[Rfam]
A member of the RNA family "Purine riboswitch aptamer" from Mesotoga sp. SC_3PWM13N19, 99 nucleotides long. The base pairs follow the family's consensus structure, which is taken from published work. The match comes from Rfam's covariance-model search (54 bits).

Nucleotides: 099
Base pairs, nucleotide, nucleotide: 021082022081023080024079025078029048030047031046032045033044034043035042057074058073059072060071061070062069
Number, partner (000 for none) and nucleotide at each position: 001000a002000g003000g004000u005000g006000a007000u008000a009000g010000a011000a012000u013000c014000c015000a016000u017000u018000u019000a020000c021082c022081c023080g024079u025078a026000u027000a028000a029048u030047c031046c032045c033044g034043c035042g036000a037000a038000u039000c040000g041000g042035c043034g044033c045032g046031g047030g048029a049000g050000u051000u052000u053000c054000u055000a056000c057074a058073g059072a060071a061070g062069g063000c064000c065000a066000u067000a068000a069062c070061c071060u072059u073058c074057u075000u076000u077000c078025u079024a080023c081022g082021g083000c084000g085000u086000g087000c088000a089000u090000u091000a092000a093000u094000a095000c096000u097000a098000c099000c